[Rfam]
The family of this 86-nucleotide RNA sequence from Pongo pygmaeus is "mir-877 microRNA precursor family". The base pairs follow the family's consensus structure, which was predicted with RNAalifold. The literature on the family includes a 2010 paper in BMC Genomics by Linsen et al., "Small RNA expression and strain specificity in the rat". Lineage of the source: Eukaryota > Eumetazoa > Simiiformes > Hominoidea > Pongo.

RNA sequence: GUAGAGGAGAUGGCGCAGGGGACACGGGCAAAGACUCGGGGGUUCCUGGGACCCUCAGACAUGUGUCCUCUUCUCCCUCCUCCCAG
Numbered sequence: 001g002u003a004g005a006g007g008a009g010a011u012g013g014c015g016c017a018g019g020g021g022a023c024a025c026g027g028g029c030a031a032a033g034a035c036u037c038g039g040g041g042g043u044u045c046c047u048g049g050g051a052c053c054c055u056c057a058g059a060c061a062u063g064u065g066u067c068c069u070c071u072u073c074u075c076c077c078u079c080c081u082c083c084c085a086g
Base pairs, nucleotide, nucleotide: 004082005081006080007079008078009077012076013075015073017071018070019069020068021067022066023065024064025063026062028060036058038056039055040054041053042052043050044049